The family of this 199-nucleotide sequence is "Group II catalytic intron D1-D4-3".

[Rfam]
RNA sequence: UCCAUCGUGAGGUGGAAUCUGAAGAAAGCCGGAUUUUGGGAGUUGAAAGGUCUCCCAAUGGGCAAAACUCUGGCCUGGCGAACAGAAAUCGCAUAUAAGGCCGUCAGCGAGGGUAAGGUUGCAUAACAGAACAAAGCCCAGUAGCUACACGGGAAUCGCUUUCCGGUAAUGCGGCAGGUCAAGAGGGAAAGACUGUGUG
Numbered sequence: 001u002c003c004a005u006c007g008u009g010a011g012g013u014g015g016a017a018u019c020u021g022a023a024g025a026a027a028g029c030c031g032g033a034u035u036u037u038g039g040g041a042g043u044u045g046a047a048a049g050g051u052c053u054c055c056c057a058a059u060g061g062g063c064a065a066a067a068c069u070c071u072g073g074c075c076u077g078g079c080g081a082a083c084a085g086a087a088a089u090c091g092c093a094u095a096u097a098a099g100g101c102c103g104u105c106a107g108c109g110a111g112g113g114u115a116a117g118g119u120u121g122c123a124u125a126a127c128a129g130a131a132c133a134a135a136g137c138c139c140a141g142u143a144g145c146u147a148c149a150c151g152g153g154a155a156u157c158g159c160u161u162u163c164c165g166g167u168a169a170u171g172c173g174g175c176a177g178g179u180c181a182a183g184a185g186g187g188a189a190a191g192a193c194u195g196u197g198u199g
Stems, first nucleotide, its partner, number of pairs: 001016006051199001053197001055195001063191001068185004073179005089174006100167003103163001106160005111139004117132001119130002